The family of this 350-nucleotide RNA from Actibacterium lipolyticum is "Alphaproteobacteria transfer-messenger RNA". The base pairs follow the family's consensus structure, which is taken from published work. A reference for the family is Williams and Bartel (1996), "Phylogenetic analysis of tmRNA secondary structure", RNA. The source organism's lineage runs through Bacteria, Alphaproteobacteria, Rhodobacterales, Roseobacteraceae and Actibacterium. The match comes from Rfam's covariance-model search (307 bits).
RNA sequence: AUGCUUGAACCUUAGCAGCCCUCCUCAUAUAUAAAAGUUGUCCUUCGGGACUAUGGACAUAAACGCGCUCGUAAUAAGCGGAUCGGACCCGGGGGCGGUACCCGGCGACUCCACCAAACAUCCUUCAUUUGGGGAUCAUGGGGUCGAAAUAGGAUCGACGAACGUCUAAAGGGGUUAGCUUUGUCUCGGUGAGGUACCACCGAUAUCGGUCCGUUUAAGCUAGUUGCAAAUGACAACAAAGCUCCGAUGGCUCUGGCUGCGUAAGCAGUUCGAUCUAUCGAAAUCUUAAGCCCUUUCGCCUAGCAGCGUAAGGCGGGGUUCGCAGGCACCUGGCAACAGAAGCCUGCACU
Numbered sequence: 001a002u003g004c005u006u007g008a009a010c011c012u013u014a015g016c017a018g019c020c021c022u023c024c025u026c027a028u029a030u031a032u033a034a035a036a037g038u039u040g041u042c043c044u045u046c047g048g049g050a051c052u053a054u055g056g057a058c059a060u061a062a063a064c065g066c067g068c069u070c071g072u073a074a075u076a077a078g079c080g081g082a083u084c085g086g087a088c089c090c091g092g093g094g095g096c097g098g099u100a101c102c103c104g105g106c107g108a109c110u111c112c113a114c115c116a117a118a119c120a121u122c123c124u125u126c127a128u129u130u131g132g133g134g135a136u137c138a139u140g141g142g143g144u145c146g147a148a149a150u151a152g153g154a155u156c157g158a159c160g161a162a163c164g165u166c167u168a169a170a171g172g173g174g175u176u177a178g179c180u181u182u183g184u185c186u187c188g189g190u191g192a193g194g195u196a197c198c199a200c201c202g203a204u205a206u207c208g209g210u211c212c213g214u215u216u217a218a219g220c221u222a223g224u225u226g227c228a229a230a231u232g233a234c235a236a237c238a239a240a241g242c243u244c245c246g247a248u249g250g251c252u253c254u255g256g257c258u259g260c261g262u263a264a265g266c267a268g269u270u271c272g273a274u275c276u277a278u279c280g281a282a283a284u285c286u287u288a289a290g291c292c293c294u295u296u297c298g299c300c301u302a303g304c305a306g307c308g309u310a311a312g313g314c315g316g317g318g319u320u321c322g323c324a325g326g327c328a329c330c331u332g333g334c335a336a337c338a339g340a341a342g343c344c345u346g347c348a349c350u
Stems, first nucleotide, its partner, number of pairs: 040051004055186005065179002067175004079164002083161003089105005106146007187202004193212002196210003316331004322347006